The record is a 68-nucleotide RNA sequence from Actinoplanes sp. TBRC 11911, which matches "ASdes TB sRNA" in Rfam.
The base pairs follow the family's consensus structure, which is taken from published work.
A search with the family's covariance model found it, with a score of 79 bits.
For this family Rfam cites "Identification of small RNAs in Mycobacterium tuberculosis" (Arnvig and Young, Mol Microbiol, 2009).
The family has 26 seed sequences and 1,192 matches in Rfam 15.1.
Taxonomically the source falls in Actinoplanes (Bacteria, Bacillati, Actinomycetota, Actinomycetes).

RNA sequence: AGGGCGAUCGGGUCGACCGCCCUGGUCACCGUCAGGUAGUCGCGCAGCGCGAUGCCGUGCCGGCCCUC
Dot-bracket structure: ....((.(..(((.((((.....)))))))....((((.(((((...)))))))))..).))......